[Rfam]
RNA sequence: UCACUUUGCACUACAAGUGCACUGCAAGUGCACUUUUGCACUUGCAGUGCACUUGUAGUGCAAAGUGG
Numbered sequence: 001u002c003a004c005u006u007u008g009c010a011c012u013a014c015a016a017g018u019g020c021a022c023u024g025c026a027a028g029u030g031c032a033c034u035u036u037u038g039c040a041c042u043u044g045c046a047g048u049g050c051a052c053u054u055g056u057a058g059u060g061c062a063a064a065g066u067g068g
Base pairs, nucleotide, nucleotide: 001068002067003066004065006064007062008061009060010059011058012057013056014055015054016053019050021048022047023046024045025044026043027042

A member of the RNA family "mir-33 microRNA precursor family" from Aquarana catesbeiana, 68 nucleotides long. Taxonomically the source falls in Aquarana (Eukaryota, Deuterostomia, Tetrapoda, Batrachia). A reference for the family is Li et al. (2009), "Direct sequencing and expression analysis of a large number of miRNAs in Aedes aegypti and a multi-species survey of novel mosquito miRNAs", BMC Genomics. Rfam 15.1 lists 1,467 matches to the family in 815 species.